Notes
This 134-nucleotide sequence from Penelope pileata belongs to the Rfam family "Small nucleolar RNA SNORA14".

[Rfam]
RNA sequence: CCGCAUUCUAAACCCUCCUGGCGGCUUGGCCGGAGCCCCCAGGGUAAGAAUGAAUGCCAGAGCAAACCGCUGAUUUAUCCAAAACGCGGAGCCCCGCUCCCGUGGCUCCUCGUUAUUUCACGUCUUCAACAUUU
Numbered sequence: 001c002c003g004c005a006u007u008c009u010a011a012a013c014c015c016u017c018c019u020g021g022c023g024g025c026u027u028g029g030c031c032g033g034a035g036c037c038c039c040c041a042g043g044g045u046a047a048g049a050a051u052g053a054a055u056g057c058c059a060g061a062g063c064a065a066a067c068c069g070c071u072g073a074u075u076u077a078u079c080c081a082a083a084a085c086g087c088g089g090a091g092c093c094c095c096g097c098u099c100c101c102g103u104g105g106c107u108c109c110u111c112g113u114u115a116u117u118u119c120a121c122g123u124c125u126u127c128a129a130c131a132u133u134u
Stems, first nucleotide, its partner, number of pairs: 003057004007050001009048001016044006023037003061134002069127001072124002083114004088109002091106002097102001
Background
Lineage of the source: Eukaryota > Opisthokonta > Coelurosauria > Galloanserae > Penelope.